[Rfam]
RNA: mir-87 microRNA precursor family
RNA sequence: UGCGGUCCCACCUGACACUCAGUCUCAACCUGUGAUGUUAUAAAGGUGAGCAAAGUCUCAGGUGUCAUCGCGA
Numbered sequence: 001u002g003c004g005g006u007c008c009c010a011c012c013u014g015a016c017a018c019u020c021a022g023u024c025u026c027a028a029c030c031u032g033u034g035a036u037g038u039u040a041u042a043a044a045g046g047u048g049a050g051c052a053a054a055g056u057c058u059c060a061g062g063u064g065u066c067a068u069c070g071c072g073a
Stems, first nucleotide, its partner, number of pairs: 002071005009064007017056003024050004029046003